[Rfam]
RNA sequence: AUCUUAUCAAGAGCAGGUGGAGGGACUAGCCCUAUGAAACCCGGCAACCGGCGGCAACAUCGCACGGUGCUAAUUCUUGCAGGAGAUACGACGAUUGUAUAAGCCGUUGUAUAGCCUGACAGAUGAGAG
Numbered sequence: 001a002u003c004u005u006a007u008c009a010a011g012a013g014c015a016g017g018u019g020g021a022g023g024g025a026c027u028a029g030c031c032c033u034a035u036g037a038a039a040c041c042c043g044g045c046a047a048c049c050g051g052c053g054g055c056a057a058c059a060u061c062g063c064a065c066g067g068u069g070c071u072a073a074u075u076c077u078u079g080c081a082g083g084a085g086a087u088a089c090g091a092c093g094a095u096u097g098u099a100u101a102a103g104c105c106g107u108u109g110u111a112u113a114g115c116c117u118g119a120c121a122g123a124u125g126a127g128a129g
Stems, first nucleotide, its partner, number of pairs: 002128007013042001016041003022032003026079001028077002043071004048067002051063003075121001080118004
RNA: SAM riboswitch aptamer (S box leader)
Organism: Paenibacillus sp. Y412MC10